[Rfam]
The record is a 110-nucleotide sequence from Vibrio sp. 99-8-1, which matches "Qrr RNA" in Rfam. It is annotated as a small RNA. The base pairs follow the family's consensus structure, which is taken from published work.
RNA sequence: UGACCCUUCUUAAAGCCGAGGGUCACCUAGCCAACUGACGUUGUUAGUGAACGAAAAUUGUUCACACUAUCUAUAAGCCAAUUGCAAGCAUUGCGAUUGGCUCUUUUUUU
Numbered sequence: 001u002g003a004c005c006c007u008u009c010u011u012a013a014a015g016c017c018g019a020g021g022g023u024c025a026c027c028u029a030g031c032c033a034a035c036u037g038a039c040g041u042u043g044u045u046a047g048u049g050a051a052c053g054a055a056a057a058u059u060g061u062u063c064a065c066a067c068u069a070u071c072u073a074u075a076a077g078c079c080a081a082u083u084g085c086a087a088g089c090a091u092u093g094c095g096a097u098u099g100g101c102u103c104u105u106u107u108u109u110u
Stems, first nucleotide, its partner, number of pairs: 001025006041076004047065007078100008
Rfam's curators write: This family represents a set of small RNAs (the Qrr RNAs) that are thought to be involved in the regulation of quorum sensing in Vibrio species. It is believed that these RNAs, guided by a protein, Hfq, can mediate the destabilisation of the quorum-sensing master regulators LuxR/HapR mRNAs. Gene Ontology term of the family: quorum sensing.